A member of the RNA family "c-di-AMP riboswitch aptamer (ydaO/yuaA leader)" from Kineosporia babensis, 160 nucleotides long.
Taxonomically the source falls in Kineosporia (Bacteria, Bacillati, Actinomycetes, Kineosporiaceae).
The pairing is the family consensus, mapped onto this sequence.
RNA sequence: CAUCGGCGGCCGCCGGAGCAAAUCAGAUGGACGCCGGGGAACCAUCCGGCACCGGGUCUCACCACCCGGGGCCACGGGGCGAAGCCGACUCAGCCGAGCCGGCCGGGCAACUUCCGCCCGAGCCCGUCAGCUCACCUGGUAGGCGAGGGAAGGACACAUA
Dot-bracket structure: ..........((((...(.............)((((((....(................................)(((.....(((............)))..((((.......))))...))).........)))))).))))...............